[Rfam]
RNA sequence: UUCCACAGCUACUGGUCUGCAGCUGUUCUUAAGGUAGCAGUUGUAACGUUCCUCUGUGUGAAAGAAACUUACACAAUUUAACACCUCUUUCUUACCAAACAGAAAGAAUAUUCGUGACAGACACAC
Numbered sequence: 001u002u003c004c005a006c007a008g009c010u011a012c013u014g015g016u017c018u019g020c021a022g023c024u025g026u027u028c029u030u031a032a033g034g035u036a037g038c039a040g041u042u043g044u045a046a047c048g049u050u051c052c053u054c055u056g057u058g059u060g061a062a063a064g065a066a067a068c069u070u071a072c073a074c075a076a077u078u079u080a081a082c083a084c085c086u087c088u089u090u091c092u093u094a095c096c097a098a099a100c101a102g103a104a105a106g107a108a109u110a111u112u113c114g115u116g117a118c119a120g121a122c123a124c125a126c
Stems, first nucleotide, its partner, number of pairs: 004058003018045008071115002075111001087106006
Shown here is a 126-nucleotide RNA from Mesocricetus auratus, a member of the family "Small nucleolar RNA SNORA41". The match comes from Rfam's covariance-model search (100 bits). Gene Ontology terms of the family: RNA processing and nucleolus. From the family's description: ACA41 is a member of the H/ACA class of snoRNA that guide the sites of modification of uridines to pseudouridines. The family's consensus secondary structure was predicted with PFOLD.